The record is a 100-nucleotide sequence from Cerasibacillus quisquiliarum, which matches "Purine riboswitch aptamer" in Rfam. Taxonomically the source falls in Cerasibacillus (Bacteria, Bacillati, Bacillota, Caryophanales). Pairs were carried over by alignment from the consensus structure, which is taken from published work.

RNA sequence: AUGAUAAUUGAAUAUGAACCUCAUAUAUUUUCGAGAAUAUGGCUUGAAAGUCUCUACCCAACACCGUAAAUGUUGGACUAUGGGGGAAGGUUGAAUUGCA
Numbered sequence: 001a002u003g004a005u006a007a008u009u010g011a012a013u014a015u016g017a018a019c020c021u022c023a024u025a026u027a028u029u030u031u032c033g034a035g036a037a038u039a040u041g042g043c044u045u046g047a048a049a050g051u052c053u054c055u056a057c058c059c060a061a062c063a064c065c066g067u068a069a070a071u072g073u074u075g076g077a078c079u080a081u082g083g084g085g086g087a088a089g090g091u092u093g094a095a096u097u098g099c100a
Base pairs, nucleotide, nucleotide: 019085020084021083022082023081024080025079029049030048031047032046033045034044035043058076059075060074061073062072063071